Rfam assigns this 80-nucleotide sequence from Musa balbisiana to the family "Plastid-rpl20 3UTR RNA". From the family's description: Plastid rpl20 is a non-coding RNA (ncRNA) recognised in plastids. By type it is a cis-regulatory element. NCBI's taxonomy places the organism under Eukaryota, Embryophyta, Euphyllophyta, Zingiberales, Musa.
RNA sequence: ACAGAAUUCCCCGGAGAAGGAACUCCGGAAAUAGAAUAAAAAUAAUUAAGAUAGUAAUAGAGGAACGAAUAUGUUUCAAU
Numbered sequence: 001a002c003a004g005a006a007u008u009c010c011c012c013g014g015a016g017a018a019g020g021a022a023c024u025c026c027g028g029a030a031a032u033a034g035a036a037u038a039a040a041a042a043u044a045a046u047u048a049a050g051a052u053a054g055u056a057a058u059a060g061a062g063g064a065a066c067g068a069a070u071a072u073g074u075u076u077c078a079a080u
Base pairs, nucleotide, nucleotide: 007031008030011028012027013026014025015024016023063076064075065074066073